[Rfam]
RNA sequence: AAAAAAAAUGGGCGCCAACACGCCCAUCCUCCUUUGCCCGUGGUCGCGCCUCGAGCCGCGCCUUAACUAAUAAGGCGUGUGCCCAGCGACGCAGGAAUUAUAACGUUUU
Numbered sequence: 001a002a003a004a005a006a007a008a009u010g011g012g013c014g015c016c017a018a019c020a021c022g023c024c025c026a027u028c029c030u031c032c033u034u035u036g037c038c039c040g041u042g043g044u045c046g047c048g049c050c051u052c053g054a055g056c057c058g059c060g061c062c063u064u065a066a067c068u069a070a071u072a073a074g075g076c077g078u079g080u081g082c083c084c085a086g087c088g089a090c091g092c093a094g095g096a097a098u099u100a101u102a103a104c105g106u107u108u109u
Base pairs, nucleotide, nucleotide: 008027009026010025011024012023013022014021041100042099043098044097047094053092055090057088058087059086
This 109-nucleotide RNA belongs to the Rfam family "Burkholderia sRNA Bp1_Cand612_SIPHT". The family's consensus secondary structure was predicted with RNAalifold. The match comes from Rfam's covariance-model search (60 bits).